[Rfam]
RNA sequence: ACAUUGAUUGGUCAAAAAUGACUGAUUAAUAGUUUCUCCUCUAUUUCUCCUUUGUAAAUAAACUUUGGCGCAUAUCUUUUCGGGAUAUGCGCGUUUUU
Number, nucleotide and partner (000 for none) at each position: 001a000002c000003a030004u029005u028006g027007a026008u025009u024010g023011g022012u000013c000014a000015a000016a000017a000018a000019u000020g000021a000022c011023u010024g009025a008026u007027u006028a005029a004030u003031a000032g000033u000034u000035u000036c000037u000038c000039c000040u058041c000042u056043a055044u054045u000046u000047c000048u000049c000050c000051u000052u000053u000054g044055u043056a042057a000058a040059u000060a000061a000062a000063c000064u000065u000066u000067g000068g092069c091070g090071c089072a088073u087074a086075u085076c084077u083078u000079u000080u000081c000082g000083g077084g076085a075086u074087a073088u072089g071090c070091g069092c068093g000094u000095u000096u000097u000098u000